[Rfam]
RNA sequence: CAGGGUAUCCAUUGAUCUUUUUUACUUCAACCAAAUGAACUAAAAAUUUAAAAUAACAUAAUUUUUUGAAAAACUAGUUCAUUUGUUUGAAUUAAAGAGGGUCAACGGGUACCCUG
Numbered sequence: 001c002a003g004g005g006u007a008u009c010c011a012u013u014g015a016u017c018u019u020u021u022u023u024a025c026u027u028c029a030a031c032c033a034a035a036u037g038a039a040c041u042a043a044a045a046a047u048u049u050a051a052a053a054u055a056a057c058a059u060a061a062u063u064u065u066u067u068g069a070a071a072a073a074c075u076a077g078u079u080c081a082u083u084u085g086u087u088u089g090a091a092u093u094a095a096a097g098a099g100g101g102u103c104a105a106c107g108g109g110u111a112c113c114c115u116g
Base pairs, nucleotide, nucleotide: 002115003114004113005112006111007110008109009108010107012105013104014103015102016101017100018099019098020097021096022095023094024093026091027090028089029088030087032085033084034083035082036081037080038079039078040077041076042075
A member of the RNA family "MIR5070 microRNA precursor family" from Brachypodium distachyon, 116 nucleotides long. Pairs were carried over by alignment from the consensus structure, which was predicted with RNAalifold.